[Rfam]
Shown here is a 32-nucleotide RNA sequence, a member of the family "S4-Flavobacteria ribosomal protein leader". The sequence is in the family's curated seed alignment. By type it is a cis-regulatory leader.

RNA sequence: UAUUAUCGAAGGAAUGCCUUAAUUCAUAAUUA
Dot-bracket structure: ((((((.(((((....))))....)))))).)